Shown here is a 53-nucleotide RNA sequence from Protea cynaroides, a member of the family "Plastid-atpF group II-D1 intron". The family's consensus secondary structure was predicted with LocARNA. The literature on the family includes a 2023 paper in Plant Commun by Richter et al., "Retrograde signaling in plants: A critical review focusing on the GUN pathway and beyond". About the family: Plastid atpF is a non-coding RNA (ncRNA) recognised in plastids. Gene Ontology term of the family: Group II intron splicing.

RNA sequence: UGGCAAUCUUUUGAUAUAGAACACUCAUAUUGAUAAAAUGACUUGAACCAAUU
Numbered sequence: 001u002g003g004c005a006a007u008c009u010u011u012u013g014a015u016a017u018a019g020a021a022c023a024c025u026c027a028u029a030u031u032g033a034u035a036a037a038a039u040g041a042c043u044u045g046a047a048c049c050a051a052u053u
Base pairs, nucleotide, nucleotide: 011033012032013031014030015029016028017027